A member of the RNA family "SAM riboswitch aptamer (S box leader)" from Polaribacter sp. SA4-12, 129 nucleotides long. For this family Rfam cites "Comparative genomics of the methionine metabolism in Gram-positive bacteria: a variety of regulatory systems" (Rodionov et al., Nucleic Acids Res, 2004). Pairs were carried over by alignment from the consensus structure, which is taken from published work.
[Rfam]
RNA sequence: CCGUUAUCACGAAAGGUAGAGGGAUUAGACCCGCUGAAGCCUUAGCAACCCAUUUCGUUAAGAAAUAAAGGUGCUACAUUCUACAGAUUAUCUUGAACAAGUUUCAUUAAUUAAUCUGACAGAUAACAG
Numbered sequence: 001c002c003g004u005u006a007u008c009a010c011g012a013a014a015g016g017u018a019g020a021g022g023g024a025u026u027a028g029a030c031c032c033g034c035u036g037a038a039g040c041c042u043u044a045g046c047a048a049c050c051c052a053u054u055u056c057g058u059u060a061a062g063a064a065a066u067a068a069a070g071g072u073g074c075u076a077c078a079u080u081c082u083a084c085a086g087a088u089u090a091u092c093u094u095g096a097a098c099a100a101g102u103u104u105c106a107u108u109a110a111u112u113a114a115u116c117u118g119a120c121a122g123a124u125a126a127c128a129g
Base pairs, nucleotide, nucleotide: 001129003127004126005125006124007123008122013043014042015041016040017039021032022031023030026083027082028081029080044075045074046073047072049071050070052066053065054064079121084118085117086116087115088114089113